[Rfam]
RNA sequence: UUCUUAUCGAGAGAAGGGGAGGGACUGGCCCGAUGAACCUUCAGCAACCUGACCGUAUGUCAAGGUGCUAAAUCCAGACAAGCGUAUCGCUUGGAAGAUAAGAA
Numbered sequence: 001u002u003c004u005u006a007u008c009g010a011g012a013g014a015a016g017g018g019g020a021g022g023g024a025c026u027g028g029c030c031c032g033a034u035g036a037a038c039c040u041u042c043a044g045c046a047a048c049c050u051g052a053c054c055g056u057a058u059g060u061c062a063a064g065g066u067g068c069u070a071a072a073u074c075c076a077g078a079c080a081a082g083c084g085u086a087u088c089g090c091u092u093g094g095a096a097g098a099u100a101a102g103a104a
Stems, first nucleotide, its partner, number of pairs: 001104008013042005021031003025077004043069004048065002050062004073096001079093006
This 104-nucleotide RNA sequence from Thermolongibacillus altinsuensis belongs to the Rfam family "SAM riboswitch aptamer (S box leader)".
About the family: The SAM riboswitch is found upstream of a number of genes which code for proteins involved in methionine or cysteine biosynthesis in Gram-positive bacteria. The SAM riboswitch acts at the level of transcription termination control. The predicted structure consists of a complex stem-loop region followed by a single stem loop terminator region.
Its family is annotated with regulation of gene expression in the Gene Ontology.
The base pairs follow the family's consensus structure, which is taken from published work.